RNA: Small nucleolar RNA SNORA68
Organism: Sus scrofa
Nucleotides: 133
Base pairs, nucleotide, nucleotide: 003058004057005056006055007054008053009052019044020043021042022041023040024039025038026037027036028035069126070125071124073122074121075120081111082110083109084108085107086106087105088104089103090102091101
Number, partner (000 for none) and nucleotide at each position: 001000c002000a003058a004057g005056c006055a007054c008053c009052u010000a011000a012000a013000c014000c015000c016000a017000a018000g019044a020043a021042c022041u023040g024039c025038u026037g027036u028035u029000u030000c031000u032000u033000g034000u035028a036027g037026c038025a039024g040023c041022g042021g043020u044019u045000u046000a047000a048000a049000c050000a051000a052009a053008g054007g055006u056005g057004c058003u059000a060000a061000c062000a063000a064000u065000a066000a067000g068000u069126g070125g071124a072000c073122c074121u075120c076000g077000u078000c079000g080000c081111c082110u083109u084108u085107g086106g087105g088104g089103g090102g091101c092000u093000g094000c095000a096000u097000c098000c099000g100000u101091g102090u103089c104088c105087u106086u107085c108084a109083a110082a111081g112000u113000g114000a115000a116000u117000c118000u119000g120075g121074a122073g123000a124071u125070c126069c127000u128000a129000c130000a131000c132000u133000c